[Rfam]
RNA: pemK RNA
RNA sequence: AUAAUGAUACUUCCGGUGACGGCUGUCGCACAUGAAUGGGCAGAGGUGAGAGUCCUAUGU
Numbered sequence: 001a002u003a004a005u006g007a008u009a010c011u012u013c014c015g016g017u018g019a020c021g022g023c024u025g026u027c028g029c030a031c032a033u034g035a036a037u038g039g040g041c042a043g044a045g046g047u048g049a050g051a052g053u054c055c056u057a058u059g060u
Stems, first nucleotide, its partner, number of pairs: 012057001013022003023043003026039003044056003